Mammalian CPEB3 ribozyme: a 77-nucleotide RNA from Crocodylus porosus.
Pairs were carried over by alignment from the consensus structure, which is taken from published work.
The organism belongs to Crocodylus, within Eukaryota.
The literature on the family includes a 2006 paper in Science by Salehi-Ashtiani et al., "A genomewide search for ribozymes reveals an HDV-like sequence in the human CPEB3 gene".

[Rfam]
RNA sequence: GGUUGCAAGUUUGAGGCUGCAGCAGAAGUGCUCACAGUGCAGCCCUGUCAGAUUCCAAUGAAUCUGCAAAUUCUAAU
Numbered sequence: 001g002g003u004u005g006c007a008a009g010u011u012u013g014a015g016g017c018u019g020c021a022g023c024a025g026a027a028g029u030g031c032u033c034a035c036a037g038u039g040c041a042g043c044c045c046u047g048u049c050a051g052a053u054u055c056c057a058a059u060g061a062a063u064c065u066g067c068a069a070a071u072u073c074u075a076a077u
Base pairs, nucleotide, nucleotide: 013045015044016043017042018041021077024074025073026072027071028040029039030038049066050065051064052063053062054061055060
A search with the family's covariance model found it, with a score of 48 bits.